[Rfam]
This 496-nucleotide part of an RNA from Musa balbisiana belongs to the Rfam family "Archaeal small subunit ribosomal RNA". A reference for the family is Yusupov et al. (2001), "Crystal structure of the ribosome at 5.5 A resolution", Science. Rfam links the family to the GO terms ribosome and structural constituent of ribosome. The match comes from Rfam's covariance-model search (956 bits).

RNA sequence: AAUGGGAUUAGAUACCCCAGUAGUCCUAGCCGUAAACGAUGGAUACUAGGCGCUGUGCGUAUCGACCCGUGCAGUGCUGUAGCUAACGCGUAAGAACCUGCCCUUGGGAGGGGAACAACAACUGGAAACGGUUGCUAAUACCCCGUAGGCUGAGGAGCAAAAGGAGGAAUCCGCCCGAGGAGGGGCUUGCGUCUGAUUAGCUAGUUGGUGAGGUAAUAGCUUACCAAGGCGAUGAUCAGUAGCUGGUCCGAGAGGAUGAUCAGCCACACUGGGACUGAGACACGGCCCAGACUCCUACGGGAGGCAGCAGUGGGGAAUUUUCCGCAAUGGGCGAAAGCCUGACGGAGCAAUGCCGCGUGGAGGUAGAAGGCCCACGGGUCGUGAACUUCUUUUCUCGGAGAAGAAACAAUGACGGUAUCUGAGGAAUAAGCAUCGGCUAACUCUGUGCCAGCAGCCGCGGUAAGACAGAGGAUGCAAGCGUUAUCCGGAAUGAUUG
Numbered sequence: 001a002a003u004g005g006g007a008u009u010a011g012a013u014a015c016c017c018c019a020g021u022a023g024u025c026c027u028a029g030c031c032g033u034a035a036a037c038g039a040u041g042g043a044u045a046c047u048a049g050g051c052g053c054u055g056u057g058c059g060u061a062u063c064g065a066c067c068c069g070u071g072c073a074g075u076g077c078u079g080u081a082g083c084u085a086a087c088g089c090g091u092a093a094g095a096a097c098c099u100g101c102c103c104u105u106g107g108g109a110g111g112g113g114a115a116c117a118a119c120a121a122c123u124g125g126a127a128a129c130g131g132u133u134g135c136u137a138a139u140a141c142c143c144c145g146u147a148g149g150c151u152g153a154g155g156a157g158c159a160a161a162a163g164g165a166g167g168a169a170u171c172c173g174c175c176c177g178a179g180g181a182g183g184g185g186c187u188u189g190c191g192u193c194u195g196a197u198u199a200g201c202u203a204g205u206u207g208g209u210g211a212g213g214u215a216a217u218a219g220c221u222u223a224c225c226a227a228g229g230c231g232a233u234g235a236u237c238a239g240u241a242g243c244u245g246g247u248c249c250g251a252g253a254g255g256a257u258g259a260u261c262a263g264c265c266a267c268a269c270u271g272g273g274a275c276u277g278a279g280a281c282a283c284g285g286c287c288c289a290g291a292c293u294c295c296u297a298c299g300g301g302a303g304g305c306a307g308c309a310g311u312g313g314g315g316a317a318u319u320u321u322c323c324g325c326a327a328u329g330g331g332c333g334a335a336a337g338c339c340u341g342a343c344g345g346a347g348c349a350a351u352g353c354c355g356c357g358u359g360g361a362g363g364u365a366g367a368a369g370g371c372c373c374a375c376g377g378g379u380c381g382u383g384a385a386c387u388u389c390u391u392u393u394c395u396c397g398g399a400g401a402a403g404a405a406a407c408a409a410u411g412a413c414g415g416u417a418u419c420u421g422a423g424g425a426a427u428a429a430g431c432a433u434c435g436g437c438u439a440a441c442u443c444u445g446u447g448c449c450a451g452c453a454g455c456c457g458c459g460g461u462a463a464g465a466c467a468g469a470g471g472a473u474g475c476a477a478g479c480g481u482u483a484u485c486c487g488g489a490a491u492g493a494u495u496g
Stems, first nucleotide, its partner, number of pairs: 004018003008014001020486001021483004026478002029356002032353003040312002044309001046307001049072001054071004059066002079267002088192007097184002102180007110144004119134006149158002166171001193239003200230003205227008242264004246257004269290005292303004320346001322345003328341005359389004394423006430475005442469004451458002